[Rfam]
RNA sequence: AGCACAAAUGAUGAACAUUUAUGGGACUUAAUACUGCAAACCCCAUGAUGACCUUUUCAGCUGAUGUGC
Dot-bracket structure: .(((((..........................................................)))))

The record is a 69-nucleotide sequence from Eleutherodactylus coqui, which matches "Small nucleolar RNA SNORD82" in Rfam. Pairs were carried over by alignment from the consensus structure, which was predicted with PFOLD. The match comes from Rfam's covariance-model search (52 bits). Gene Ontology terms of the family: RNA processing and nucleolus.